[Rfam]
RNA: Plastid-psbN 5UTR RNA
RNA sequence: UGAGACACCUAUCAAAGGAGCCGUUCCCCAUCCAGGGGCUACCUUUCAUAUUCCGAAUUC
Numbered sequence: 001u002g003a004g005a006c007a008c009c010u011a012u013c014a015a016a017g018g019a020g021c022c023g024u025u026c027c028c029c030a031u032c033c034a035g036g037g038g039c040u041a042c043c044u045u046u047c048a049u050a051u052u053c054c055g056a057a058u059u060c
Stems, first nucleotide, its partner, number of pairs: 017045002020042001023039005